[Rfam]
Shown here is a 351-nucleotide RNA from Myripristis murdjan, a member of the family "Vertebrate telomerase RNA". Its family is annotated with telomere maintenance via telomerase, telomerase activity and telomerase catalytic core complex in the Gene Ontology. For this family Rfam cites "Secondary structure of vertebrate telomerase RNA" (Chen et al., Cell, 2000). Rfam describes the family as follows. Telomerase is a ribonucleoprotein reverse transcriptase that synthesises telomeric DNA. Telomerase RNAs differ greatly in sequence and structure between vertebrates, ciliates and yeasts, but they share a 5' pseudoknot structure close to the template sequence. Vertebrate telomerase RNAs have a 3' H/ACA snoRNA-like domain. NCBI's taxonomy places the organism under Eukaryota, Opisthokonta, Euteleosteomorpha, Holocentridae, Myripristis.
RNA sequence: CGCCUUGCGGAGUGUUUUCUCUAACCCUAAAUUCGGGCGGCCUCCUGUACUUAACGUUUGCUGUUUUCUCCGCUCCGGCUUUCAGUGAACUACGGGAGGUUUCUGGAAUGGCGCUGGGAAUGAAAUCAAACCAAAAAAAAAAAAGCUGGUGCAUCACUCCGUCAUGCUCAGCGUCCCGGCCAAACACCGUGACCGUCCCGCCGUGGUCAGCCCGGCUGCCGCGAAGAGUUGGCCUCUGCUGCUCCGGUGUUUAGCGCCGGGACUCUUUCCUGUUGAGCAGAUUAAACUGAGCAGGGUGGCUCUGCUGGGCCUGCCACUAGGCCAGCCAGACAGCCCGACGCUCAAACACCC
Numbered sequence: 001c002g003c004c005u006u007g008c009g010g011a012g013u014g015u016u017u018u019c020u021c022u023a024a025c026c027c028u029a030a031a032u033u034c035g036g037g038c039g040g041c042c043u044c045c046u047g048u049a050c051u052u053a054a055c056g057u058u059u060g061c062u063g064u065u066u067u068c069u070c071c072g073c074u075c076c077g078g079c080u081u082u083c084a085g086u087g088a089a090c091u092a093c094g095g096g097a098g099g100u101u102u103c104u105g106g107a108a109u110g111g112c113g114c115u116g117g118g119a120a121u122g123a124a125a126u127c128a129a130a131c132c133a134a135a136a137a138a139a140a141a142a143a144a145g146c147u148g149g150u151g152c153a154u155c156a157c158u159c160c161g162u163c164a165u166g167c168u169c170a171g172c173g174u175c176c177c178g179g180c181c182a183a184a185c186a187c188c189g190u191g192a193c194c195g196u197c198c199c200g201c202c203g204u205g206g207u208c209a210g211c212c213c214g215g216c217u218g219c220c221g222c223g224a225a226g227a228g229u230u231g232g233c234c235u236c237u238g239c240u241g242c243u244c245c246g247g248u249g250u251u252u253a254g255c256g257c258c259g260g261g262a263c264u265c266u267u268u269c270c271u272g273u274u275g276a277g278c279a280g281a282u283u284a285a286a287c288u289g290a291g292c293a294g295g296g297u298g299g300c301u302c303u304g305c306u307g308g309g310c311c312u313g314c315c316a317c318u319a320g321g322c323c324a325g326c327c328a329g330a331c332a333g334c335c336c337g338a339c340g341c342u343c344a345a346a347c348a349c350c351c
Base pairs, nucleotide, nucleotide: 005164007162008161009160010159011158012157013156014155041099042098043097044096045095056090057089058088059087060086061085062084063083072146073145074144080139081138082137167277168276169275170274171273172272173263174262175261176260177259178258179257180256183251184250185249186248187247188246189245202223203222204221205220206219208218209217210216211215225237226236227235228234289343290342291341292340294336295335296334297333305329306328307327308326309322310321311320312319313318